[Rfam]
RNA sequence: GGCUUUCUUCGCGGCGGAGCUCGACCGCCCGUCUCGCUGAUCGUGGAGUACAUCGAUCAGCACCAUGUCGAGUUCGGGGUCGAGCCGAUCUGCCGCACGCUCACUGAAGCGGACGUCAAGAUCUCCCCG
Numbered sequence: 001g002g003c004u005u006u007c008u009u010c011g012c013g014g015c016g017g018a019g020c021u022c023g024a025c026c027g028c029c030c031g032u033c034u035c036g037c038u039g040a041u042c043g044u045g046g047a048g049u050a051c052a053u054c055g056a057u058c059a060g061c062a063c064c065a066u067g068u069c070g071a072g073u074u075c076g077g078g079g080u081c082g083a084g085c086c087g088a089u090c091u092g093c094c095g096c097a098c099g100c101u102c103a104c105u106g107a108a109g110c111g112g113a114c115g116u117c118a119a120g121a122u123c124u125c126c127c128c129g
Stems, first nucleotide, its partner, number of pairs: 013029005075129005087123001089121003
Rfam assigns this 129-nucleotide RNA sequence from a Frankiales bacterium to the family "ALIL pseudoknot". By type it is a cis-regulatory element. It scores 61 bits against the family's covariance model.